RNA sequence: GGUUGAUGUGAUGAUAAUCUUUCACAGAAAAUCAUAUUUACUGUUGACCAAAAUACACACUACAAUUAUCUAAUCAACU
Numbered sequence: 001g002g003u004u005g006a007u008g009u010g011a012u013g014a015u016a017a018u019c020u021u022u023c024a025c026a027g028a029a030a031a032u033c034a035u036a037u038u039u040a041c042u043g044u045u046g047a048c049c050a051a052a053a054u055a056c057a058c059a060c061u062a063c064a065a066u067u068a069u070c071u072a073a074u075c076a077a078c079u
Stems, first nucleotide, its partner, number of pairs: 001079006
The family of this 79-nucleotide RNA from Hordeum vulgare is "Small nucleolar RNA Z155".
Gene Ontology terms of the family: nucleolus and RNA processing.
NCBI's taxonomy places the organism under Eukaryota, Petrosaviidae, Triticodae, Hordeinae, Hordeum vulgare.
It scores 72 bits against the family's covariance model.